[Rfam]
RNA sequence: GACUUAUAUUCAGUGGCGAGGUUAACCGUAUAGGGGAGCCGUAGGGAAACCGAGUCUUAACUGGGCGACACAGUCGCUGGAUAUAGACCCGAAACCGAGCGAUCUAUCCAUGAGCAGGGUGAAGAUUGAGUAACAUCAAUUGGAGGCCCGAACCAGGAUCUGUUGAAAAAGAUUUGGAUGACUUGUGGAUCGGAGUGAAAGGCUAAUCAAGCUCGGAGAUAGCUGGUU
Numbered sequence: 001g002a003c004u005u006a007u008a009u010u011c012a013g014u015g016g017c018g019a020g021g022u023u024a025a026c027c028g029u030a031u032a033g034g035g036g037a038g039c040c041g042u043a044g045g046g047a048a049a050c051c052g053a054g055u056c057u058u059a060a061c062u063g064g065g066c067g068a069c070a071c072a073g074u075c076g077c078u079g080g081a082u083a084u085a086g087a088c089c090c091g092a093a094a095c096c097g098a099g100c101g102a103u104c105u106a107u108c109c110a111u112g113a114g115c116a117g118g119g120u121g122a123a124g125a126u127u128g129a130g131u132a133a134c135a136u137c138a139a140u141u142g143g144a145g146g147c148c149c150g151a152a153c154c155a156g157g158a159u160c161u162g163u164u165g166a167a168a169a170a171g172a173u174u175u176g177g178a179u180g181a182c183u184u185g186u187g188g189a190u191c192g193g194a195g196u197g198a199a200a201g202g203c204u205a206a207u208c209a210a211g212c213u214c215g216g217a218g219a220u221a222g223c224u225g226g227u228u
Stems, first nucleotide, its partner, number of pairs: 005085013020040004026034002044051002054066004088226002091223001095216006104192001106190009115180001117149004124141006153177003157174005194204003
This 228-nucleotide part of an RNA from Halovibrio variabilis belongs to the Rfam family "Bacterial large subunit ribosomal RNA".
The organism belongs to Halovibrio, within Bacteria.
A search with the family's covariance model found it, with a score of 2864 bits.